The family of this 70-nucleotide sequence from Mesocricetus auratus is "mir-344 microRNA precursor family". Rfam links the family to the GO terms miRNA-mediated post-transcriptional gene silencing and RISC complex.
RNA sequence: UUUCCAGUCAGGCUUCUGGCUAAAAUAAACUCCAGCUCUUAGCUGGAUUUAGCCAAAGCCUGACUGUAAA
Numbered sequence: 001u002u003u004c005c006a007g008u009c010a011g012g013c014u015u016c017u018g019g020c021u022a023a024a025a026u027a028a029a030c031u032c033c034a035g036c037u038c039u040u041a042g043c044u045g046g047a048u049u050u051a052g053c054c055a056a057a058g059c060c061u062g063a064c065u066g067u068a069a070a
Stems, first nucleotide, its partner, number of pairs: 007064003011060004017055008032046005